Rfam assigns this 101-nucleotide RNA from Baia soyae to the family "Purine riboswitch aptamer". The organism belongs to Baia, within Bacteria. The family's consensus secondary structure is taken from published work. About the family: Riboswitches are metabolite binding domains within certain messenger RNAs that serve as precision sensors for their corresponding targets.
[Rfam]
RNA sequence: AUAAAUCGAGGUAGACUUACCGUAUAUUUUCAGGGAUAUGGCCUGAUAGUCUCUACCCAGCUACCGUAAAUAGCUGGACUACGUGUUAUGAGGUCACCGGG
Number, nucleotide and partner (000 for none) at each position: 001a000002u000003a000004a000005a000006u000007c000008g000009a000010g000011g000012u000013a000014g000015a000016c000017u000018u000019a086020c085021c083022g082023u081024a080025u000026a000027u000028u048029u000030u046031c045032a044033g043034g042035g000036a000037u000038a000039u000040g000041g000042c034043c033044u032045g031046a030047u000048a028049g000050u000051c000052u000053c000054u000055a000056c000057c077058c076059a075060g074061c073062u072063a071064c000065c000066g000067u000068a000069a000070a000071u063072a062073g061074c060075u059076g058077g057078a000079c000080u024081a023082c022083g021084u000085g020086u019087u000088a000089u000090g000091a000092g000093g000094u000095c000096a000097c000098c000099g000100g000101g000